Description: The family of this 101-nucleotide RNA sequence from Sporolactobacillus inulinus is "Purine riboswitch aptamer". It scores 75 bits against the family's covariance model. Lineage of the source: Bacteria > Bacillati > Bacilli > Caryophanales > Sporolactobacillus inulinus. Riboswitches are metabolite binding domains within certain messenger RNAs that serve as precision sensors for their corresponding targets.

Nucleotides: 101
Base pairs, nucleotide, nucleotide: 018087019086020085021084022083023082024081025080029049030048031047032046033045034044058078059077060076061075062074063073064072
Number, partner (000 for none) and nucleotide at each position: 001000a002000a003000a004000c005000u006000u007000c008000a009000u010000c011000c012000u013000u014000u015000c016000u017000g018087u019086u020085u021084u022083c023082g024081u025080a026000u027000a028000u029049c030048c031047u032046u033045a034044a035000u036000a037000a038000u039000a040000c041000g042000g043000u044034u045033u046032a047031g048030g049029g050000g051000u052000u053000u054000c055000u056000a057000c058078c059077u060076g061075g062074g063073a064072a065000c066000c067000g068000u069000a070000a071000a072064u073063u074062c075061c076060c077059g078058g079000c080025u081024a082023c083022g084021a085020a086019a087018a088000a089000u090000a091000u092000g093000c094000g095000u096000g097000c098000a099000u100000a101000u